[Rfam]
RNA sequence: AUUCCGAAAUCGCUGAAUUUCCGAUCAGGAAAACGGGGGAACCAAUCGCGGUUCGCGGAUCGGGCUUGUGUGAGAGCGAGCCGGCCGGAGCCGCAUGGGGUGAAUCCUUGUGCCGAUGUACGACAAUGGGCACAAGGUAGGGCGACUCUCACCGCCCGAAUCCGUCAGCUAACCUCGUAAGCGCAAGGGAGAGGCAAC
Numbered sequence: 001a002u003u004c005c006g007a008a009a010u011c012g013c014u015g016a017a018u019u020u021c022c023g024a025u026c027a028g029g030a031a032a033a034c035g036g037g038g039g040a041a042c043c044a045a046u047c048g049c050g051g052u053u054c055g056c057g058g059a060u061c062g063g064g065c066u067u068g069u070g071u072g073a074g075a076g077c078g079a080g081c082c083g084g085c086c087g088g089a090g091c092c093g094c095a096u097g098g099g100g101u102g103a104a105u106c107c108u109u110g111u112g113c114c115g116a117u118g119u120a121c122g123a124c125a126a127u128g129g130g131c132a133c134a135a136g137g138u139a140g141g142g143c144g145a146c147u148c149u150c151a152c153c154g155c156c157c158g159a160a161u162c163c164g165u166c167a168g169c170u171a172a173c174c175u176c177g178u179a180a181g182c183g184c185a186a187g188g189g190a191g192a193g194g195c196a197a198c
Stems, first nucleotide, its partner, number of pairs: 011183004018032005033178006043097002098163003106137009140157004
RNA: c-di-AMP riboswitch aptamer (ydaO/yuaA leader)
Organism: Paenibacillus flagellatus